[Rfam]
RNA sequence: GGGUCAAUGAUGUCUGGCAGUCUCCAUCUUGAAAAGAGGUGAUGAAAUAAAUAUCGGGCACAACAGGAAAUCUCUGAGGCCC
Number, nucleotide and partner (000 for none) at each position: 001g082002g081003g080004u079005c076006a075007a000008u000009g072010a000011u000012g000013u000014c000015u000016g000017g000018c000019a000020g000021u000022c000023u000024c000025c000026a000027u000028c000029u000030u000031g000032a000033a000034a000035a000036g000037a000038g000039g000040u000041g000042a000043u000044g000045a000046a000047a000048u000049a000050a000051a000052u000053a000054u000055c000056g000057g000058g000059c000060a000061c000062a000063a000064c000065a000066g000067g000068a000069a000070a000071u000072c009073u000074c000075u006076g005077a000078g000079g004080c003081c002082c001
This 82-nucleotide sequence from Myotis brandtii belongs to the Rfam family "Small nucleolar RNA SNORD115". For this family Rfam cites "Identification of brain-specific and imprinted small nucleolar RNA genes exhibiting an unusual genomic organization" (Cavaille et al., Proc Natl Acad Sci U S A, 2000). The family's RNA type in Rfam is C/D-box small nucleolar RNA. Rfam 15.1 lists 3,387 matches to the family in 131 species. The match comes from Rfam's covariance-model search (49 bits). The organism belongs to Myotis, within Eukaryota. Its family is annotated with nucleolus and RNA processing in the Gene Ontology.